[Rfam]
RNA sequence: AUUAGAUAAAGGCAAAUCCGUCGAAAGUCGGAGACGCAAAGCCACGGAUCUAAAGCUUAAGAAGCUAUGAUCGCCGGGUUACCGAA
Numbered sequence: 001a002u003u004a005g006a007u008a009a010a011g012g013c014a015a016a017u018c019c020g021u022c023g024a025a026a027g028u029c030g031g032a033g034a035c036g037c038a039a040a041g042c043c044a045c046g047g048a049u050c051u052a053a054a055g056c057u058u059a060a061g062a063a064g065c066u067a068u069g070a071u072c073g074c075c076g077g078g079u080u081a082c083c084g085a086a
Stems, first nucleotide, its partner, number of pairs: 012037002017032004022027001040080004045076003048071003055065004

Record summary:
This 86-nucleotide RNA from Paenibacillus sp. PvR098 belongs to the Rfam family "c-di-GMP-I riboswitch aptamer". The base pairs follow the family's consensus structure, which is taken from published work. NCBI's taxonomy places the organism under Bacteria, Bacillati, Bacillota, Paenibacillaceae, Paenibacillus.